[Rfam]
RNA sequence: UGCAGUUGUGUCAAAUUCAUUGCUCACCUUUUCAUGGUGGGCAUUGGUCCAAACAGCUGCCAAAGUAAUAUCUGUAGUUCAUGGGCCUCAGAAUUCUUUAUGGGUUCUGGGGAUAGUUUUUCUGCAGACAUUU
Numbered sequence: 001u002g003c004a005g006u007u008g009u010g011u012c013a014a015a016u017u018c019a020u021u022g023c024u025c026a027c028c029u030u031u032u033c034a035u036g037g038u039g040g041g042c043a044u045u046g047g048u049c050c051a052a053a054c055a056g057c058u059g060c061c062a063a064a065g066u067a068a069u070a071u072c073u074g075u076a077g078u079u080c081a082u083g084g085g086c087c088u089c090a091g092a093a094u095u096c097u098u099u100a101u102g103g104g105u106u107c108u109g110g111g112g113a114u115a116g117u118u119u120u121u122c123u124g125c126a127g128a129c130a131u132u133u
Stems, first nucleotide, its partner, number of pairs: 002060004018046002021043008074125004086112005
Dot-bracket structure: .((((............((.((((((((.......)))))))).))..........)))).............((((........(((((.................))))).........))))........